[Rfam]
RNA: mir-282 microRNA precursor family
Organism: Zootermopsis nevadensis
RNA sequence: UGGAGACUCUGAUUUAGCCUCUCCUAGGCUUUGUCUGUCCAGAGAAUUACACUACUAGACAUAGCCUAAAAGAGGUUAGUUCAAGUCACCCAA
Numbered sequence: 001u002g003g004a005g006a007c008u009c010u011g012a013u014u015u016a017g018c019c020u021c022u023c024c025u026a027g028g029c030u031u032u033g034u035c036u037g038u039c040c041a042g043a044g045a046a047u048u049a050c051a052c053u054a055c056u057a058g059a060c061a062u063a064g065c066c067u068a069a070a071a072g073a074g075g076u077u078a079g080u081u082c083a084a085g086u087c088a089c090c091c092a093a
Base pairs, nucleotide, nucleotide: 012081014079015078016077017076018075019074020073027066028065029064030063032061033060034059035058036057